Background: Shown here is a 586-nucleotide part of an RNA from Candidatus Arthromitus sp. SFB-mouse, a member of the family "Bacterial small subunit ribosomal RNA". Rfam's curators put it in the seed alignment. The organism belongs to Candidatus Arthromitus sp. SFB-mouse, within Bacteria. The base pairs follow the family's consensus structure, which is taken from published work.
RNA sequence: UGACGGGGACCCGCACAAGCAGCGGAGCAUGUGGUUUAAUUCGAAGCAACGCGAAGAACCUUACCUAAACUUGACAUACCUUGAAUUACCUUGUAAUGAGGGAAGCUCGCAAGAGCAAGGAUACAGGUGGUGCAUGGUUGUCGUCAGCUCGUGUCGUGAGAUGUUGGGUUAAGUCCCGCAACGAGCGCAACCCUUGUUGUUAAUUGCUAACAGGUUAAGCUGAGCACUUUAGCGAGACAGCCUAGGUUAACUAGGAGGAAGGUGGGGAUGACGUCAAAUCAUCAUGCCCCUUACGUUUAGGGCUACACACGUGCUACAAUGGUGAGAACAGAGAGAAGCAAGCUAGUGAUAGUGAGCAAAACUUAUAAAACUCAUCUCAGUUCGGAUUGCAGGCUGAAACUCGCCUGUAUGAAGAUGGAGUUGCUAGUAAUCGCGAAUCAGAAUGUCGCGGUGAAUACGUUCCCGGGUCUUGUACACACCGCCCGUCACACCAUGAGAGUUGGCAACACCCGAAACCUGUGGGCUAACCAUAUAGGAGGCAGCAGUCUAAGGUGGGGUCAGUGAUUGGGGUGAAGUCGUAACAAGG
Numbered sequence: 001u002g003a004c005g006g007g008g009a010c011c012c013g014c015a016c017a018a019g020c021a022g023c024g025g026a027g028c029a030u031g032u033g034g035u036u037u038a039a040u041u042c043g044a045a046g047c048a049a050c051g052c053g054a055a056g057a058a059c060c061u062u063a064c065c066u067a068a069a070c071u072u073g074a075c076a077u078a079c080c081u082u083g084a085a086u087u088a089c090c091u092u093g094u095a096a097u098g099a100g101g102g103a104a105g106c107u108c109g110c111a112a113g114a115g116c117a118a119g120g121a122u123a124c125a126g127g128u129g130g131u132g133c134a135u136g137g138u139u140g141u142c143g144u145c146a147g148c149u150c151g152u153g154u155c156g157u158g159a160g161a162u163g164u165u166g167g168g169u170u171a172a173g174u175c176c177c178g179c180a181a182c183g184a185g186c187g188c189a190a191c192c193c194u195u196g197u198u199g200u201u202a203a204u205u206g207c208u209a210a211c212a213g214g215u216u217a218a219g220c221u222g223a224g225c226a227c228u229u230u231a232g233c234g235a236g237a238c239a240g241c242c243u244a245g246g247u248u249a250a251c252u253a254g255g256a257g258g259a260a261g262g263u264g265g266g267g268a269u270g271a272c273g274u275c276a277a278a279u280c281a282u283c284a285u286g287c288c289c290c291u292u293a294c295g296u297u298u299a300g301g302g303c304u305a306c307a308c309a310c311g312u313g314c315u316a317c318a319a320u321g322g323u324g325a326g327a328a329c330a331g332a333g334a335g336a337a338g339c340a341a342g343c344u345a346g347u348g349a350u351a352g353u354g355a356g357c358a359a360a361a362c363u364u365a366u367a368a369a370a371c372u373c374a375u376c377u378c379a380g381u382u383c384g385g386a387u388u389g390c391a392g393g394c395u396g397a398a399a400c401u402c403g404c405c406u407g408u409a410u411g412a413a414g415a416u417g418g419a420g421u422u423g424c425u426a427g428u429a430a431u432c433g434c435g436a437a438u439c440a441g442a443a444u445g446u447c448g449c450g451g452u453g454a455a456u457a458c459g460u461u462c463c464c465g466g467g468u469c470u471u472g473u474a475c476a477c478a479c480c481g482c483c484c485g486u487c488a489c490a491c492c493a494u495g496a497g498a499g500u501u502g503g504c505a506a507c508a509c510c511c512g513a514a515a516c517c518u519g520u521g522g523g524c525u526a527a528c529c530a531u532a533u534a535g536g537a538g539g540c541a542g543c544a545g546u547c548u549a550a551g552g553u554g555g556g557g558u559c560a561g562u563g564a565u566u567g568g569g570g571u572g573a574a575g576u577c578g579u580a581a582c583a584a585g586g
Base pairs, nucleotide, nucleotide: 001476002475003473004472005471007470008469009468010467011466012465013464015460016459019424020423021422022421023420024317026315027314028313029312030311031310032309033308034306035305040055041054042053043052064301065300066299067298068297069296070295077123078122079120080119081118082117083116086104087103089101090100091099092098106115107114108113126290127289129288130287131286132285135284136283137279138278139277140275142273143272147186148185149184150183151182152181153162154161155160165178166177167176168175192267193266194265195264197235198234199233200232201231202230203229207224208223211222212221213220238258241255242254243253244252245251321376322375323374324373325372326371333364334363335362338357339356343352344351345350383414388409389408390407391406392405393404394403430452431451432450433449434448435447436446479585481582484578485577489572490571491570492569494567495566496565499562500561501560502559503558504557507554508553509552510551517545518544519543520542523540524539525538528536529535